[Rfam]
RNA sequence: CCCUCGCCCAACAGAUCGCCAUUCGAAGCUCACAAACCGAGAAGCCAGGCUUCGGCCUCGCAUCUAUUUUAUGGCUUUGGGAGAAAGUCCCCGGACACCCUUUCCCUCCUUCGGGAGUUGGAGAGGCCGCGGAAACGCGCCGCCACAGAAGCACUGCGGCUGACCUCCAGCAGCCCUCGGUUCGUGCCAGCUCCCUUCACCCCGCCUCGCCGCUACAUCGGCGCUUCCUCUCUUCCUUUCUCGGGCCUUUUCCCAGUCAGGGCGGCUGGAUCUAGGACCUUAUGGGCGAAGAUAUGAGUCCGAGCCUGGGUUUGGUUGUCUUGUGCUGUUGGUUCUUAAGGGGUCGAGAGUGGUGUUGAUGGCGUGUGCGGUCGCCGAGGGGAGUGAGUGCCGAGCCGGUUCGGGGCCGCCGAGGAUUUUUCGUCGAGAUGCGAAAGAAAUGCGAUUGCCCUCUUCCUUUGGGAAGAUGGUUACUCGAUGGGGCUUAUUCUUGGUGCGAGG
Numbered sequence: 001c002c003c004u005c006g007c008c009c010a011a012c013a014g015a016u017c018g019c020c021a022u023u024c025g026a027a028g029c030u031c032a033c034a035a036a037c038c039g040a041g042a043a044g045c046c047a048g049g050c051u052u053c054g055g056c057c058u059c060g061c062a063u064c065u066a067u068u069u070u071a072u073g074g075c076u077u078u079g080g081g082a083g084a085a086a087g088u089c090c091c092c093g094g095a096c097a098c099c100c101u102u103u104c105c106c107u108c109c110u111u112c113g114g115g116a117g118u119u120g121g122a123g124a125g126g127c128c129g130c131g132g133a134a135a136c137g138c139g140c141c142g143c144c145a146c147a148g149a150a151g152c153a154c155u156g157c158g159g160c161u162g163a164c165c166u167c168c169a170g171c172a173g174c175c176c177u178c179g180g181u182u183c184g185u186g187c188c189a190g191c192u193c194c195c196u197u198c199a200c201c202c203c204g205c206c207u208c209g210c211c212g213c214u215a216c217a218u219c220g221g222c223g224c225u226u227c228c229u230c231u232c233u234u235c236c237u238u239u240c241u242c243g244g245g246c247c248u249u250u251u252c253c254c255a256g257u258c259a260g261g262g263c264g265g266c267u268g269g270a271u272c273u274a275g276g277a278c279c280u281u282a283u284g285g286g287c288g289a290a291g292a293u294a295u296g297a298g299u300c301c302g303a304g305c306c307u308g309g310g311u312u313u314g315g316u317u318g319u320c321u322u323g324u325g326c327u328g329u330u331g332g333u334u335c336u337u338a339a340g341g342g343g344u345c346g347a348g349a350g351u352g353g354u355g356u357u358g359a360u361g362g363c364g365u366g367u368g369c370g371g372u373c374g375c376c377g378a379g380g381g382g383a384g385u386g387a388g389u390g391c392c393g394a395g396c397c398g399g400u401u402c403g404g405g406g407c408c409g410c411c412g413a414g415g416a417u418u419u420u421u422c423g424u425c426g427a428g429a430u431g432c433g434a435a436a437g438a439a440a441u442g443c444g445a446u447u448g449c450c451c452u453c454u455u456c457c458u459u460u461g462g463g464a465a466g467a468u469g470g471u472u473a474c475u476c477g478a479u480g481g482g483g484c485u486u487a488u489u490c491u492u493g494g495u496g497c498g499a500g501g
Base pairs, nucleotide, nucleotide: 002501003500004499005498006497007496008494009493010492011491014447015446016445017444018443019442023081024079025078026077027076028075029074039061041059042058044056045055085486086485087484089483090482091481092480102134103133104132105131256418263412264411265410266409268407272405273404275402285397286396287395381391383389449470450469452467453466454465455464456463

Notes
Rfam assigns this 501-nucleotide RNA from Plectosphaerella plurivora to the family "RNase MRP". It scores 94 bits against the family's covariance model. Taxonomically the source falls in Plectosphaerella (Eukaryota, Opisthokonta, Pezizomycotina, Glomerellales).